[Rfam]
Notes:
The family of this 189-nucleotide RNA from Oryza nivara is "MIR812 microRNA precursor family". Its family is annotated with miRNA-mediated post-transcriptional gene silencing and RISC complex in the Gene Ontology.
RNA sequence: AAUAAGUACAGCCGUGGGUAUCCGUGUUCAACGUUUGACCGUUCGUCUUAUUUGAAAAAUUUAUGAAAAAAUUAAAAAAAUAGUCACACAUAAAGUACUAUUCAUAUUUUAUCAUCUAAUAAUAAUAAAAAUACUAAUCAUAAAAAAAUUUCAAAUAAGACAAACGGUUAAACGUUGGACGUGAACAGU
Numbered sequence: 001a002a003u004a005a006g007u008a009c010a011g012c013c014g015u016g017g018g019u020a021u022c023c024g025u026g027u028u029c030a031a032c033g034u035u036u037g038a039c040c041g042u043u044c045g046u047c048u049u050a051u052u053u054g055a056a057a058a059a060u061u062u063a064u065g066a067a068a069a070a071a072u073u074a075a076a077a078a079a080a081u082a083g084u085c086a087c088a089c090a091u092a093a094a095g096u097a098c099u100a101u102u103c104a105u106a107u108u109u110u111a112u113c114a115u116c117u118a119a120u121a122a123u124a125a126u127a128a129a130a131a132u133a134c135u136a137a138u139c140a141u142a143a144a145a146a147a148a149u150u151u152c153a154a155a156u157a158a159g160a161c162a163a164a165c166g167g168u169u170a171a172a173c174g175u176u177g178g179a180c181g182u183g184a185a186c187a188g189u
Stems, first nucleotide, its partner, number of pairs: 027179006034172010045161007